[Rfam]
RNA sequence: GGCAGAGUAGGCAAACGUGUGUUUCCGCCGGGCCUUUAAGGGCCGGCAAGUGCCGGGAGAACGGGGAGUUGUCCCCCGGACGAAAAGUCGGAAGACUUGCAGUACGUUUGCCGCAUCCCGCUGCC
Numbered sequence: 001g002g003c004a005g006a007g008u009a010g011g012c013a014a015a016c017g018u019g020u021g022u023u024u025c026c027g028c029c030g031g032g033c034c035u036u037u038a039a040g041g042g043c044c045g046g047c048a049a050g051u052g053c054c055g056g057g058a059g060a061a062c063g064g065g066g067a068g069u070u071g072u073c074c075c076c077c078g079g080a081c082g083a084a085a086a087g088u089c090g091g092a093a094g095a096c097u098u099g100c101a102g103u104a105c106g107u108u109u110g111c112c113g114c115a116u117c118c119c120g121c122u123g124c125c
Stems, first nucleotide, its partner, number of pairs: 001125005010112010020101003050081002053079005059073002064118003068114001085098004
Background: THF (Tetrahydrofolate) riboswitch aptamer: a 125-nucleotide RNA from Papillibacter cinnamivorans. On this family, see Ames et al., Chem Biol 2010: "A eubacterial riboswitch class that senses the coenzyme tetrahydrofolate". Pairs were carried over by alignment from the consensus structure, which is taken from published work.